The record is an 80-nucleotide sequence from Aeoliella mucimassa, which matches "c-di-GMP-I-GGC riboswitch aptamer" in Rfam. For this family Rfam cites "Structural and biochemical determinants of ligand binding by the c-di-GMP riboswitch " (Smith et al., Biochemistry, 2010). The source organism's lineage runs through Bacteria, Pseudomonadati, Planctomycetota, Planctomycetia and Aeoliella.
[Rfam]
RNA sequence: ACCGACAAAGGCAAACCUGCCGCGAGGCAGGGACGCAAAGCCGUGGAUCUCUCUCUGGGGAGACAGCCUGGUUACCGGAC
Dot-bracket structure: ..((......((...((((((....))))))..[))..((((..((.((............))..])).))))..))...
Numbered sequence: 001a002c003c004g005a006c007a008a009a010g011g012c013a014a015a016c017c018u019g020c021c022g023c024g025a026g027g028c029a030g031g032g033a034c035g036c037a038a039a040g041c042c043g044u045g046g047a048u049c050u051c052u053c054u055c056u057g058g059g060g061a062g063a064c065a066g067c068c069u070g071g072u073u074a075c076c077g078g079a080c
Stems, first nucleotide, its partner, number of pairs: 003077002011036002016031006034066001039073004045068002048063002